[Rfam]
RNA sequence: GCGCUCGUAGUUCAGUGGACAGAAUAUUUGACUUCGGAUCAAAGGGUCGGGGGUUCAAAUCCUCCCGAGCGCG
Numbered sequence: 001g002c003g004c005u006c007g008u009a010g011u012u013c014a015g016u017g018g019a020c021a022g023a024a025u026a027u028u029u030g031a032c033u034u035c036g037g038a039u040c041a042a043a044g045g046g047u048c049g050g051g052g053g054u055u056c057a058a059a060u061c062c063u064c065c066c067g068a069g070c071g072c073g
Stems, first nucleotide, its partner, number of pairs: 001072007010025004027043005049065005
Rfam assigns this 73-nucleotide RNA sequence from Paraglomus brasilianum to the family "tRNA". It scores 67 bits against the family's covariance model. Transfer RNA (tRNA) molecules are approximately 80 nucleotides in length.